[Rfam]
Nucleotides: 133
Base pairs, nucleotide, nucleotide: 002064003063004062005061006060007059008058012053013052016050017049018048019047020046024040025039026038027037028036077124078123079122080121084117087114088113089112092108093107094106095105096104
Number, partner (000 for none) and nucleotide at each position: 001000a002064u003063a004062c005061a006060u007059c008058u009000a010000u011000u012053u013052g014000g015000c016050a017049a018048a019047u020046c021000u022000g023000g024040a025039g026038u027037a028036g029000u030000u031000a032000c033000u034000g035000u036028c037027u038026g039025c040024u041000g042000c043000u044000a045000a046020g047019a048018u049017u050016u051000c052013c053012a054000c055000u056000a057000c058008a059007g060006a061005u062004g063003u064002a065000a066000g067000g068000a069000a070000a071000a072000a073000g074000u075000g076000c077124u078123u079122u080121u081000a082000u083000g084117c085000u086000u087114u088113u089112u090000g091000u092108c093107u094106g095105u096104c097000u098000u099000g100000c101000u102000g103000u104096g105095g106094c107093a108092g109000c110000c111000a112089a113088g114087a115000u116000u117084g118000a119000a120000a121080g122079g123078g124077g125000a126000a127000u128000a129000c130000a131000a132000g133000a
Rfam assigns this 133-nucleotide RNA from Prolemur simus to the family "Small nucleolar RNA SNORA31". On this family, see Huttenhofer et al., EMBO J 2001: "RNomics: an experimental approach that identifies 201 candidates for novel, small, non-messenger RNAs in mouse". About the family: ACA31 (SNORA31) belongs to the H/ACA class of snoRNAs which are thought to guide the sites of modification of uridines to pseudouridines. ACA31 is predicted to guide the pseudouridylation of U3713 in 28S rRNA and U218 in 18S rRNA. This family includes the mouse homologue snoMBI-161. The family has 5 seed sequences and 2,094 matches in Rfam 15.1. Taxonomically the source falls in Prolemur (Eukaryota, Euteleostomi, Amniota, Theria). The base pairs follow the family's consensus structure, which was predicted with RNAalifold. Rfam classes the family as an H/ACA-box small nucleolar RNA.